Rfam assigns this 126-nucleotide sequence from Perca fluviatilis to the family "Small nucleolar RNA SNORA65". The organism belongs to Perca, within Eukaryota. Its Rfam clan is "SNORA65 clan". Pairs were carried over by alignment from the consensus structure, which was predicted with RNAalifold. The family has 14 seed sequences and 1,089 matches in Rfam 15.1. Gene Ontology terms of the family: RNA processing and nucleolus. About the family: U65 belongs to the H/ACA class of snoRNAs which are thought to guide the sites of modification of uridines to pseudouridines. By type it is an H/ACA-box small nucleolar RNA.
RNA sequence: CCCGCCACUAUGCCUGUCAGUCAGUGACUGAGUAUAAUCCAGUGGAGGCUCAGAGUGACCCGGCUUUAGGAAACAGGGCUGCCCCAAACUAAUGGACAACUCUGUGCCGUAAAGUCUGGAACAAAU
Number, nucleotide and partner (000 for none) at each position: 001c000002c000003c000004g000005c045006c044007a043008c042009u041010a000011u000012g000013c000014c000015u000016g000017u000018c032019a000020g029021u027022c026023a000024g000025u000026g022027a021028c000029u020030g000031a000032g018033u000034a000035u000036a000037a000038u000039c000040c000041a009042g008043u007044g006045g005046a000047g000048g000049c000050u000051c000052a000053g000054a000055g000056u000057g000058a000059c000060c119061c118062g117063g116064c114065u113066u112067u111068a000069g108070g107071a000072a000073a000074c104075a103076g102077g101078g100079c000080u000081g000082c000083c095084c094085c000086a000087a000088a000089c000090u000091a000092a000093u000094g084095g083096a000097c000098a000099a000100c078101u077102c076103u075104g074105u000106g000107c070108c069109g000110u000111a067112a066113a065114g064115u000116c063117u062118g061119g060120a000121a000122c000123a000124a000125a000126u000